[Rfam]
RNA: mir-320 microRNA precursor family
Organism: Prolemur simus
RNA sequence: AGAACUUACGGCCUUCUCUUCCCCGUUGUUCCCGGAGUUGGGAAAAGUUGGGUUGAGAGGGUGGAAAAAGAAAAAA
Numbered sequence: 001a002g003a004a005c006u007u008a009c010g011g012c013c014u015u016c017u018c019u020u021c022c023c024c025g026u027u028g029u030u031c032c033c034g035g036a037g038u039u040g041g042g043a044a045a046a047g048u049u050g051g052g053u054u055g056a057g058a059g060g061g062u063g064g065a066a067a068a069a070g071a072a073a074a075a076a
Stems, first nucleotide, its partner, number of pairs: 014059005021052003025048001029044006